[Rfam]
RNA sequence: UCAGUUUUACGGCAGCCCUAGAAUUGAUUUGCGUUAAAGCCUGAACUGAUCCUUUACCGAAAGACUUAGUGCCAAGUAUUAUUGCUCUUUUAUGAUCUUGCAAAGCUCCGGCAACUAUUUCCGAGGCAGAGGCAGAAUUACCGUUUAUUAAAACUAUCAUAGGUACUUUGGGAGCUUUUAAUGAAAACUCAUUUGCUUUAGUUUCACUAUUACUUAAUGUAGUUCUACCUUUUGUUGUUACAAUUACACCGGAAUCAAUAAAAUAAUCACUAACAGCAAUAGCUUGAUCGAGUAUACCUCCGGCAUUAUUACGUAA
Numbered sequence: 001u002c003a004g005u006u007u008u009a010c011g012g013c014a015g016c017c018c019u020a021g022a023a024u025u026g027a028u029u030u031g032c033g034u035u036a037a038a039g040c041c042u043g044a045a046c047u048g049a050u051c052c053u054u055u056a057c058c059g060a061a062a063g064a065c066u067u068a069g070u071g072c073c074a075a076g077u078a079u080u081a082u083u084g085c086u087c088u089u090u091u092a093u094g095a096u097c098u099u100g101c102a103a104a105g106c107u108c109c110g111g112c113a114a115c116u117a118u119u120u121c122c123g124a125g126g127c128a129g130a131g132g133c134a135g136a137a138u139u140a141c142c143g144u145u146u147a148u149u150a151a152a153a154c155u156a157u158c159a160u161a162g163g164u165a166c167u168u169u170g171g172g173a174g175c176u177u178u179u180a181a182u183g184a185a186a187a188c189u190c191a192u193u194u195g196c197u198u199u200a201g202u203u204u205c206a207c208u209a210u211u212a213c214u215u216a217a218u219g220u221a222g223u224u225c226u227a228c229c230u231u232u233u234g235u236u237g238u239u240a241c242a243a244u245u246a247c248a249c250c251g252g253a254a255u256c257a258a259u260a261a262a263a264u265a266a267u268c269a270c271u272a273a274c275a276g277c278a279a280u281a282g283c284u285u286g287a288u289c290g291a292g293u294a295u296a297c298c299u300c301c302g303g304c305a306u307u308a309u310u311a312c313g314u315a316a
Base pairs, nucleotide, nucleotide: 004312005311008308009307012304013303014176015175016174018172019171021169022168023167027164028163029162030161031160033158045070046069047068048067049066052063053062054061055060075086076085077084078083093140094139095138096137098135099134100133101132105127106126107125109123110122111121143154144153145152146151182195183194184193185192199209200208201207202206211294212293213292214291215290217288218287220272221271222270223269230263231262232261233260234259235258236257237256244251275284276283277282

Rfam assigns this 316-nucleotide RNA from Rickettsia amblyommatis to the family "Rickettsia sRNA47". Rfam's curators put it in the seed alignment. By type it is a small RNA. The source organism's lineage runs through Bacteria, Rickettsiales, Rickettsieae, Rickettsia and Rickettsia amblyommatis. About the family: Expressed in human microvascular endothelial cells (HMEC) infected with Rickettsia. For this family Rfam cites "Identification and Characterization of Novel Small RNAs in Rickettsia prowazekii" (Schroeder et al., Front Microbiol, 2016).